This 117-nucleotide RNA from Friedmanniella luteola belongs to the Rfam family "mraW RNA". Taxonomically the source falls in Friedmanniella (Bacteria, Actinomycetes, Propionibacteriales, Nocardioidaceae). It scores 58 bits against the family's covariance model.
RNA sequence: CGCGACGCGUGCGCAGAGGCUUCAACCCGAGCGUCCGACUCCCUGGCGCACCUUCCCCGGUGCCAGGUAGUGACGCUCGGACCUCGGGUUGAAACCCCUGCGCACGGAUCGCGCGAA
Numbered sequence: 001c002g003c004g005a006c007g008c009g010u011g012c013g014c015a016g017a018g019g020c021u022u023c024a025a026c027c028c029g030a031g032c033g034u035c036c037g038a039c040u041c042c043c044u045g046g047c048g049c050a051c052c053u054u055c056c057c058c059g060g061u062g063c064c065a066g067g068u069a070g071u072g073a074c075g076c077u078c079g080g081a082c083c084u085c086g087g088g089u090u091g092a093a094a095c096c097c098c099u100g101c102g103c104a105c106g107g108a109u110c111g112c113g114c115g116a117a
Stems, first nucleotide, its partner, number of pairs: 010104007018096002021093011034080001038071003042067008
Annotation: Rfam classes the family as a cis-regulatory element.